[Rfam]
RNA sequence: ACCGAGCUUCGUUGCGGGAGCUUGUGACUCGAGCCAGUCGGGGGUAUUAAAGUGGUUUAGGAACGCUGGGUCACGCUUGUGAGUCUGGGUGCAAGUAGAGCGUUUGGUUGGCUCGCCCGUUCCAAGUGGGGUAGCGGGAUGGUGCGCCUUGAGCGAAAGCUUGGGUCGCGCAUCUCUUGAAGCGGAGGAAACCGCGUGAGGCUGGUUUCACAGAGCAGCGAACACCUCCCGCUCUUAACGGUGGAAGGACAACGGGCCACCGCCCCACGUACCCUCUACGGCCCGCACCAAUAGCGAACAACCACUUUU
Number, nucleotide and partner (000 for none) at each position: 001a045002c044003c043004g023005a022006g021007c020008u019009u018010c017011g000012u000013u000014g000015c000016g000017g010018g009019a008020g007021c006022u005023u004024g000025u000026g000027a000028c042029u041030c040031g039032a000033g000034c000035c000036a000037g000038u000039c031040g030041g029042g028043g003044g002045u001046a000047u000048u000049a308050a307051a306052g305053u304054g303055g302056u301057u300058u000059a000060g000061g000062a000063a000064c296065g295066c294067u293068g292069g289070g288071u000072c000073a000074c000075g000076c000077u000078u287079g286080u285081g284082a000083g282084u281085c280086u000087g274088g273089g272090u271091g270092c269093a000094a000095g266096u000097a000098g264099a000100g000101c262102g261103u000104u000105u000106g000107g000108u000109u259110g258111g257112c256113u255114c254115g253116c000117c248118c247119g000120u246121u245122c244123c243124a242125a000126g239127u238128g000129g236130g235131g234132u000133a233134g232135c231136g176137g175138g174139a173140u172141g171142g000143u170144g169145c168146g167147c000148c165149u164150u163151g162152a161153g160154c159155g000156a000157a000158a000159g154160c153161u152162u151163g150164g149165g148166u000167c146168g145169c144170g143171c141172a140173u139174c138175u137176c136177u182178u000179g000180a000181a000182g177183c000184g229185g228186a227187g226188g225189a000190a000191a000192c000193c000194g000195c220196g219197u218198g000199a000200g000201g000202c213203u212204g211205g000206u000207u000208u000209c000210a000211c204212a203213g202214a000215g000216c000217a000218g197219c196220g195221a000222a000223c000224a000225c188226c187227u186228c185229c184230c000231g135232c134233u133234c131235u130236u129237a000238a127239c126240g000241g000242u124243g123244g122245a121246a120247g118248g117249a000250c000251a000252a000253c115254g114255g113256g112257c111258c110259a109260c000261c102262g101263c000264c098265c000266c095267a000268c000269g092270u091271a090272c089273c088274c087275u000276c000277u000278a000279c000280g085281g084282c083283c000284c081285g080286c079287a078288c070289c069290a000291a000292u068293a067294g066295c065296g064297a000298a000299c000300a057301a056302c055303c054304a053305c052306u051307u050308u049309u000
RNA: Plant signal recognition particle RNA